[Rfam]
This 108-nucleotide sequence belongs to the Rfam family "TPP riboswitch aptamer (THI element)". The family's consensus secondary structure is taken from published work. For this family Rfam cites "Structural basis of thiamine pyrophosphate analogues binding to the eukaryotic riboswitch" (Thore et al., J Am Chem Soc, 2008).

RNA sequence: AUGUAGCAUGGCGGGUGUUCGAUGAUUGCCUCGGCAUGAUUCGUUCUGAGAAAUACCGCUGAACUUGAUCUGGAUAAUACCAGCGAAAGGACAUGCUUCAUACUUUUC
Numbered sequence: 001a002u003g004u005a006g007c008a009u010g011g012c013g014g015g016u017g018u019u020c021g022a023u024g025a026u027u028g029c030c031u032c033g034g035c036a037u038g039a040u041u042c043g044u045u046c047u048g049a050g051a052a053a054u055a056c057c058g059c060u061g062a063a064c065u066u067g068a069u070c071u072g073g074a075u076a077a078u079a080c081c082a083g084c085g086a087a088a089g090g091a092c093a094u095g096c097u098u099c100a101u102a103c104u105u106u107u108c
Stems, first nucleotide, its partner, number of pairs: 006096005011059004016053001017046001020043002064089003070083004